A member of the RNA family "BsrC" from Geomicrobium halophilum, 88 nucleotides long. The family's RNA type in Rfam is small RNA. Lineage of the source: Bacteria > Bacillati > Bacillota > Bacilli > Geomicrobium. Rfam's curators write: The 301 nucleotide sequence from Kouji Nakamura has been trimmed to a highly conserved ~85 nucleotide long core to form this family. It scores 60 bits against the family's covariance model.
RNA sequence: CGAACUCAAUACAACGAAAGCCCUUCCUUCUCUUUCGUCAUUGCGGCUCCGAUGACCGCGCCAUUUGAAUUGAGUUUGCGUAUCUUCC
Numbered sequence: 001c002g003a004a005c006u007c008a009a010u011a012c013a014a015c016g017a018a019a020g021c022c023c024u025u026c027c028u029u030c031u032c033u034u035u036c037g038u039c040a041u042u043g044c045g046g047c048u049c050c051g052a053u054g055a056c057c058g059c060g061c062c063a064u065u066u067g068a069a070u071u072g073a074g075u076u077u078g079c080g081u082a083u084c085u086u087c088c
Stems, first nucleotide, its partner, number of pairs: 035068003041063001042060005048054001